[Rfam]
RNA sequence: UUGGCAUGAUGAGGAAAUUCAUUGAAUAACUGAUCUACUGGAUGAGAAAUUCCUCCUACUCAUUCUGA
Numbered sequence: 001u002u003g004g005c006a007u008g009a010u011g012a013g014g015a016a017a018u019u020c021a022u023u024g025a026a027u028a029a030c031u032g033a034u035c036u037a038c039u040g041g042a043u044g045a046g047a048a049a050u051u052c053c054u055c056c057u058a059c060u061c062a063u064u065c066u067g068a
Base pairs, nucleotide, nucleotide: 006063007062008061009060027046030041

A member of the RNA family "Small nucleolar RNA Z105" from Leersia perrieri, 68 nucleotides long. It scores 62 bits against the family's covariance model. It is annotated as a C/D-box small nucleolar RNA. Rfam links the family to the GO terms RNA processing and nucleolus. The source organism's lineage runs through Eukaryota, Streptophytina, Spermatophyta, Poales and Leersia. Pairs were carried over by alignment from the consensus structure, which was predicted with CMfinder.